The family of this 106-nucleotide sequence from Saccharum sp. is "MIR444 microRNA precursor family".
NCBI's taxonomy places the organism under Eukaryota, Streptophytina, Mesangiospermae, Panicoideae, Saccharum.
Its family is annotated with miRNA-mediated post-transcriptional gene silencing and RISC complex in the Gene Ontology.
Rfam's curators put it in the seed alignment.
On this family, see Lu et al., Proc Natl Acad Sci U S A 2008: "Genome-wide analysis for discovery of rice microRNAs reveals natural antisense microRNAs (nat-miRNAs)".
[Rfam]
RNA sequence: CAAGCAUGAGGCAGGAACUGCAUUACUUGCAAGAAAGUCACAAAAUCAAUUGCAGGAUCAUACUUGUGGCUUUCUUGCAAGUUGUGCAGUUGUUGCCUCAAGCUUG
Numbered sequence: 001c002a003a004g005c006a007u008g009a010g011g012c013a014g015g016a017a018c019u020g021c022a023u024u025a026c027u028u029g030c031a032a033g034a035a036a037g038u039c040a041c042a043a044a045a046u047c048a049a050u051u052g053c054a055g056g057a058u059c060a061u062a063c064u065u066g067u068g069g070c071u072u073u074c075u076u077g078c079a080a081g082u083u084g085u086g087c088a089g090u091u092g093u094u095g096c097c098u099c100a101a102g103c104u105u106g
Base pairs, nucleotide, nucleotide: 001106002105003104004103005102008099009098011096012095021086022085023084026081028079029078030077031076032075035072036071037070039068040067041066042065